The family of this 59-nucleotide RNA sequence is "Mu-gpT-DE RNA". Pairs were carried over by alignment from the consensus structure, which is taken from published work.

RNA sequence: UCCUGACUGAUUGUUCCAUGUGGAACAUCAGACACUAGCCAAGACAGGAGAACCUCAUG
Dot-bracket structure: .((((.(((((...............))))).............))))...........
Rfam's curators put it in the seed alignment.